[Rfam]
Nucleotides: 088
Stems, first nucleotide, its partner, number of pairs: 003025006027053006060080008
Number, partner (000 for none) and nucleotide at each position: 001000u002000c003025c004024c005023u006022g007021c008020u009000u010000u011000u012000c013000c014000u015000c016000c017000c018000u019000g020008a021007g022006c023005a024004g025003g026000u027053g028052c029051c030050u031049u032048a033000c034000c035000g036000u037000g038000a039000u040000g041000a042000c043000a044000g045000c046000g047000u048032u049031a050030a051029g052028g053027c054000u055000u056000c057000c058000a059000u060080a061079g062078c063077c064076c065075c066074g067073g068000c069000c070000a071000u072000g073067c074066c075065g076064g077063g078062g079061c080060u081000c082000u083000u084000u085000u086000u087000u088000u